[Rfam]
RNA sequence: UAGGCGUAAACCGAAAAGCCUUGGAUAGAGUAGGUG
Numbered sequence: 001u002a003g004g005c006g007u008a009a010a011c012c013g014a015a016a017a018g019c020c021u022u023g024g025a026u027a028g029a030g031u032a033g034g035u036g
Base pairs, nucleotide, nucleotide: 002021003020004019005018010035011034012033
Shown here is a 36-nucleotide RNA from Gilvibacter sp. SZ-19, a member of the family "DUF805b RNA".
The family's RNA type in Rfam is cis-regulatory element.
The family is grouped with related families in Rfam's "DUF805 clan".
NCBI's taxonomy places the organism under Bacteria, Pseudomonadati, Flavobacteriia, Flavobacteriales, Gilvibacter.